[Rfam]
RNA sequence: GCCGAGCUGAGUAGCGACAGCUUGUGAUCCAAGUGGGGGCAACAAGGUGGUGGAACAUGGCUUAGGCUUAACAGGUUGGACUGGUUUGUGCACCACGUUGGCAUGCCCGCUCCAAGUUGAGAGUUGAGUCAUGGGAUUUGAGCGAAGGCACGAGUCUUGUGGGUCUUAGACAGGAGGGUACAGCGUGAGGCUGGUUUCACAGAGCAGGGAACACCUCGUACUCCUAACAGUGGAGGGAUUACAGGCCGCUGCACCUCCAGCCCAUUACACCUGGUGAGCCUAGCCCCUUGAACCAUCAUUUUU
Numbered sequence: 001g002c003c004g005a006g007c008u009g010a011g012u013a014g015c016g017a018c019a020g021c022u023u024g025u026g027a028u029c030c031a032a033g034u035g036g037g038g039g040c041a042a043c044a045a046g047g048u049g050g051u052g053g054a055a056c057a058u059g060g061c062u063u064a065g066g067c068u069u070a071a072c073a074g075g076u077u078g079g080a081c082u083g084g085u086u087u088g089u090g091c092a093c094c095a096c097g098u099u100g101g102c103a104u105g106c107c108c109g110c111u112c113c114a115a116g117u118u119g120a121g122a123g124u125u126g127a128g129u130c131a132u133g134g135g136a137u138u139u140g141a142g143c144g145a146a147g148g149c150a151c152g153a154g155u156c157u158u159g160u161g162g163g164u165c166u167u168a169g170a171c172a173g174g175a176g177g178g179u180a181c182a183g184c185g186u187g188a189g190g191c192u193g194g195u196u197u198c199a200c201a202g203a204g205c206a207g208g209g210a211a212c213a214c215c216u217c218g219u220a221c222u223c224c225u226a227a228c229a230g231u232g233g234a235g236g237g238a239u240u241a242c243a244g245g246c247c248g249c250u251g252c253a254c255c256u257c258c259a260g261c262c263c264a265u266u267a268c269a270c271c272u273g274g275u276g277a278g279c280c281u282a283g284c285c286c287c288u289u290g291a292a293c294c295a296u297c298a299u300u301u302u303u
Stems, first nucleotide, its partner, number of pairs: 001040003004023006028037003044302010056290002059286002061283002065279001068277003072273005078263002081260004088254003099248004104243002107237002110235005116228004121223004126165002129162012142149002172219001174217004184209001186207001191202003
Rfam assigns this 303-nucleotide RNA from Trifolium subterraneum to the family "Plant signal recognition particle RNA".
By type it is a non-coding RNA gene.
A search with the family's covariance model found it, with a score of 226 bits.
Lineage of the source: Eukaryota > Magnoliopsida > Pentapetalae > Fabales > Trifolium.